Shown here is a 104-nucleotide sequence, a member of the family "Tryptophan operon leader". Gene Ontology terms of the family: tryptophan biosynthetic process and transcriptional attenuation by ribosome. From the family's description: At least 6 amino acid operons are known to be regulated by attenuation. In each a leader sequence of 150-200 bp is found upstream of the first gene in the operon. It is annotated as a cis-regulatory leader.

[Rfam]
RNA sequence: CACGGUUGGUGGCGUACCUCCCUCUUGCGGGCGGUGUAAUCGCGCAUAGCUGUCAUCUGACAAUGCAGAUUUCCUGAGCCCGCACCUGAUGCGGGCUUUUUUAU
Numbered sequence: 001c002a003c004g005g006u007u008g009g010u011g012g013c014g015u016a017c018c019u020c021c022c023u024c025u026u027g028c029g030g031g032c033g034g035u036g037u038a039a040u041c042g043c044g045c046a047u048a049g050c051u052g053u054c055a056u057c058u059g060a061c062a063a064u065g066c067a068g069a070u071u072u073c074c075u076g077a078g079c080c081c082g083c084a085c086c087u088g089a090u091g092c093g094g095g096c097u098u099u100u101u102u103a104u
Stems, first nucleotide, its partner, number of pairs: 009043004014037005020031003077097007